[Rfam]
RNA sequence: AUAUCAUGCUGAGCGGCGUGAGGGAACUGGCCCGCGGAUCGCCCGGCAACCAACCAAGCAAGGUGCCAAUGCCAGCCCCCCGGGGACCCAUGAGGU
Dot-bracket structure: ((.(((((....(.((((...(((..[[[[)))......)))))((((.((..........))))))...(]]]](((....)))..)))))).))
Record summary:
SAM riboswitch aptamer (S box leader): a 96-nucleotide RNA from Olavius algarvensis associated proteobacterium Delta 3. Taxonomically the source falls in Deltaproteobacteria (Bacteria, delta/epsilon subdivisions). The match comes from Rfam's covariance-model search (57 bits). Pairs were carried over by alignment from the consensus structure, which is taken from published work.